[Rfam]
RNA sequence: CGGCGUUCUCAGGGCGGGGUGAAAUUCCCCACCGGCGGUGACAGCCCGCGAGCGCCCUUCGCGCACGCAGGUCCGGACGGGGCAACCCGGCGCGGGCCCGCGUGGCAGAGGAAGGGGUCAAGCAGAUCCGGUGGAAUUCCGGGGCCGACGGUGAAAGUCCGGAUGGAAGAGACGUAU
Numbered sequence: 001c002g003g004c005g006u007u008c009u010c011a012g013g014g015c016g017g018g019g020u021g022a023a024a025u026u027c028c029c030c031a032c033c034g035g036c037g038g039u040g041a042c043a044g045c046c047c048g049c050g051a052g053c054g055c056c057c058u059u060c061g062c063g064c065a066c067g068c069a070g071g072u073c074c075g076g077a078c079g080g081g082g083c084a085a086c087c088c089g090g091c092g093c094g095g096g097c098c099c100g101c102g103u104g105g106c107a108g109a110g111g112a113a114g115g116g117g118u119c120a121a122g123c124a125g126a127u128c129c130g131g132u133g134g135a136a137u138u139c140c141g142g143g144g145c146c147g148a149c150g151g152u153g154a155a156a157g158u159c160c161g162g163a164u165g166g167a168a169g170a171g172a173c174g175u176a177u
Stems, first nucleotide, its partner, number of pairs: 003175004008171003017029003031158002033147002035049004044145002052123002127143005149161003